[Rfam]
RNA: SAM riboswitch aptamer (S box leader)
Nucleotides: 113
Stems, first nucleotide, its partner, number of pairs: 001113008013042001015041003021032003026082004043074004048070002051065003078105001083102006
Number, partner (000 for none) and nucleotide at each position: 001113c002112u003111c004110u005109u006108a007107u008106c009000a010000a011000g012000a013042g014000c015041g016040g017039c018000g019000g020000a021032g022031g023030g024000a025000a026082u027081a028080g029079g030023c031022c032021c033000u034000g035000c036000g037000a038000a039017g040016c041015c042013c043074g044073g045072c046071a047000a048070c049069c050000g051065g052064c053063a054000g055000a056000c057000c058000c059000u060000g061000u062000c063053u064052g065051c066000a067000a068000a069049g070048g071046u072045g073044c074043u075000a076000a077000u078105u079029c080028c081027u082026a083102c084101a085100g086099a087098u088097u089000c090000g091000g092000g093000a094000g095000c096000g097088g098087a099086u100085c101084u102083g103000a104000c105078a106008g107007a108006u109005a110004a111003g112002g113001g